[Rfam]
RNA sequence: AUGCCCUACGGAUGCUCAGGUCCGCCGCAUCUCCUGGGACUUCGUGGGCUCGGCCAGCCUGGGGGCAGAUCGUUGCCUCCUCAACGCUGCUCCCGGCUGGCCACCAA
Numbered sequence: 001a002u003g004c005c006c007u008a009c010g011g012a013u014g015c016u017c018a019g020g021u022c023c024g025c026c027g028c029a030u031c032u033c034c035u036g037g038g039a040c041u042u043c044g045u046g047g048g049c050u051c052g053g054c055c056a057g058c059c060u061g062g063g064g065g066c067a068g069a070u071c072g073u074u075g076c077c078u079c080c081u082c083a084a085c086g087c088u089g090c091u092c093c094c095g096g097c098u099g100g101c102c103a104c105c106a107a
Stems, first nucleotide, its partner, number of pairs: 003050001005048006015038006052102008061093002